Overview: ZMP/ZTP riboswitch aptamer (pfl RNA motif): an 82-nucleotide sequence from Blautia sp. An249. The source organism's lineage runs through Bacteria, Clostridia, Lachnospirales, Lachnospiraceae and Blautia. Pairs were carried over by alignment from the consensus structure, which is taken from published work.
RNA sequence: AAAAGGCUUAAUAACUGACGGAAAAGUGGAGUACCACAAAGGAGUUAAGCCUAAGAUACUGCCGGCCGUCUGGGCAACAUUU
Dot-bracket structure: ...(((((((((..(([[[[[....((((....))))..))..))))))))).......((((..]]]]]..))))......